[Rfam]
RNA sequence: UUUAUUGUGGGAGACAAUGAAUCCCGGGGUUUAAGCGGGCGCCCAGGCCCCGGCGGUGAGUCAGUGGCGCGACCGGCCCAGCCUUUU
Numbered sequence: 001u002u003u004a005u006u007g008u009g010g011g012a013g014a015c016a017a018u019g020a021a022u023c024c025c026g027g028g029g030u031u032u033a034a035g036c037g038g039g040c041g042c043c044c045a046g047g048c049c050c051c052g053g054c055g056g057u058g059a060g061u062c063a064g065u066g067g068c069g070c071g072a073c074c075g076g077c078c079c080a081g082c083c084u085u086u087u
Stems, first nucleotide, its partner, number of pairs: 004084001008080004013062003022056002024053006037074002039070005
Annotation: c-di-GMP-II-GAG riboswitch aptamer: an 87-nucleotide RNA from a Syntrophomonadaceae bacterium. The source organism's lineage runs through Bacteria, Bacillota, Clostridia, Eubacteriales and Syntrophomonadaceae. Gene Ontology terms of the family: regulation of gene expression and cyclic-di-GMP binding. A reference for the family is Weinberg et al. (2017), "Bioinformatic analysis of riboswitch structures uncovers variant classes with altered ligand specificity", Proc Natl Acad Sci U S A. The match comes from Rfam's covariance-model search (50 bits). The family's consensus secondary structure is taken from published work.